[Rfam]
RNA sequence: CAAAUGCAAUAGCCAGAGCCGUAGAAAGCAGGGGCAAACCGCUUAAUCAUCCUGCCGAGGUUCGUUCGGAGAGUAGUUUCUACCCUCCUGACAGCCUCCUUUUGCGGGGCUGUCUUUUUAUUCAAGGA
Numbered sequence: 001c002a003a004a005u006g007c008a009a010u011a012g013c014c015a016g017a018g019c020c021g022u023a024g025a026a027a028g029c030a031g032g033g034g035c036a037a038a039c040c041g042c043u044u045a046a047u048c049a050u051c052c053u054g055c056c057g058a059g060g061u062u063c064g065u066u067c068g069g070a071g072a073g074u075a076g077u078u079u080c081u082a083c084c085c086u087c088c089u090g091a092c093a094g095c096c097u098c099c100u101u102u103u104g105c106g107g108g109g110c111u112g113u114c115u116u117u118u119u120a121u122u123c124a125a126g127g128a
Stems, first nucleotide, its partner, number of pairs: 028055006034042002091113008
Description: Rfam assigns this 128-nucleotide RNA sequence from Gloeobacterales cyanobacterium ES-bin-313 to the family "Ribosomal protein L10 leader". NCBI's taxonomy places the organism under Bacteria, Bacillati, Cyanobacteriota, Cyanophyceae, Gloeobacterales. It scores 53 bits against the family's covariance model.